[Rfam]
The record is a 68-nucleotide RNA from Oceanobacillus oncorhynchi, which matches "Bacillaceae-1 RNA" in Rfam. By type it is a small RNA. Lineage of the source: Bacteria > Bacillota > Caryophanales > Bacillaceae > Oceanobacillus.
RNA sequence: AAAAAAGGAACUUCUACUAAGAACGUCCACGUCCUGUGGACAACGCAGAAGUCACCAUAUCCUGUGAA
Numbered sequence: 001a002a003a004a005a006a007g008g009a010a011c012u013u014c015u016a017c018u019a020a021g022a023a024c025g026u027c028c029a030c031g032u033c034c035u036g037u038g039g040a041c042a043a044c045g046c047a048g049a050a051g052u053c054a055c056c057a058u059a060u061c062c063u064g065u066g067a068a
Base pairs, nucleotide, nucleotide: 011051012050013049014048015047017045026040027039028038029037030036056066057065058064